[Rfam]
Rfam assigns this 87-nucleotide RNA sequence from Cnephaeus nilssonii to the family "mir-9195 microRNA precursor family". A search with the family's covariance model found it, with a score of 92 bits.
RNA sequence: AGAGGCCUUCUGUGGCCGGGGUGGAAUGCUUGCCUCAUCGCUGCGUCAAUGAAGCAAGCAUUCCGCCAGGCUGCUCAUGCUGCCUGC
Numbered sequence: 001a002g003a004g005g006c007c008u009u010c011u012g013u014g015g016c017c018g019g020g021g022u023g024g025a026a027u028g029c030u031u032g033c034c035u036c037a038u039c040g041c042u043g044c045g046u047c048a049a050u051g052a053a054g055c056a057a058g059c060a061u062u063c064c065g066c067c068a069g070g071c072u073g074c075u076c077a078u079g080c081u082g083c084c085u086g087c
Stems, first nucleotide, its partner, number of pairs: 004084003012074006020067014037050002040047001